[Rfam]
RNA: Selenocysteine transfer RNA
RNA sequence: GGCCUCCUACAGAAACGGUGGUCCGGUUCCGCGGGCUUCAAACCCGUGAUCGUGCAAGCGAUGAGAGUUCGAUUCUCUUAGGAGGCC
Numbered sequence: 001g002g003c004c005u006c007c008u009a010c011a012g013a014a015a016c017g018g019u020g021g022u023c024c025g026g027u028u029c030c031g032c033g034g035g036c037u038u039c040a041a042a043c044c045c046g047u048g049a050u051c052g053u054g055c056a057a058g059c060g061a062u063g064a065g066a067g068u069u070c071g072a073u074u075c076u077c078u079u080a081g082g083a084g085g086c087c
Base pairs, nucleotide, nucleotide: 001087002086003085004084005083006082007081008080009079012029013028014027016025017024018023030048031047032046033045034044035043050061051060052059053058064078065077066076067075